[Rfam]
RNA sequence: AUGUUCCUGCUUUAUACGUAGAUGAAGUAUAUAUUGACCCAACAUUUUUUGAUUGGGAAUCUUGCUCUUUUAAUCUAUUGAUGCUCUUAAAUGAGAACUUGAAAUUGAAAGGCGGAUACCCACCUGUUGAGAGACAGGAUCAACUAUUAGUUCAUAUACGGUUUAGUGGGAACUUU
Numbered sequence: 001a002u003g004u005u006c007c008u009g010c011u012u013u014a015u016a017c018g019u020a021g022a023u024g025a026a027g028u029a030u031a032u033a034u035u036g037a038c039c040c041a042a043c044a045u046u047u048u049u050u051g052a053u054u055g056g057g058a059a060u061c062u063u064g065c066u067c068u069u070u071u072a073a074u075c076u077a078u079u080g081a082u083g084c085u086c087u088u089a090a091a092u093g094a095g096a097a098c099u100u101g102a103a104a105u106u107g108a109a110a111g112g113c114g115g116a117u118a119c120c121c122a123c124c125u126g127u128u129g130a131g132a133g134a135c136a137g138g139a140u141c142a143a144c145u146a147u148u149a150g151u152u153c154a155u156a157u158a159c160g161g162u163u164u165a166g167u168g169g170g171a172a173c174u175u176u
Base pairs, nucleotide, nucleotide: 003173004172005171006170007169008168009167010166011165014162015161017160018159019158031147032146033145035142036141037140039138040137055121056120057119059117060116061115062114066111068110069109070108071107072106073105074104080098084095085094086093